[Rfam]
RNA sequence: GGAAGAGAGGCGUUCCCCGGUGGGGCGACCGGUCUUCAAAAUCGGGUGGGGCCGUCAGCCGGUCCCAGGUGGGUUCGACUCCCAUUCUCUUCC
Numbered sequence: 001g002g003a004a005g006a007g008a009g010g011c012g013u014u015c016c017c018c019g020g021u022g023g024g025g026c027g028a029c030c031g032g033u034c035u036u037c038a039a040a041a042u043c044g045g046g047u048g049g050g051g052c053c054g055u056c057a058g059c060c061g062g063u064c065c066c067a068g069g070u071g072g073g074u075u076c077g078a079c080u081c082c083c084a085u086u087c088u089c090u091u092c093c
Stems, first nucleotide, its partner, number of pairs: 001093009011027003015024003029045005048066005070084004

The record is a 93-nucleotide sequence from Pseudothauera rhizosphaerae, which matches "Selenocysteine transfer RNA" in Rfam. The family is grouped with related families in Rfam's "tRNA clan". The base pairs follow the family's consensus structure, which is taken from published work.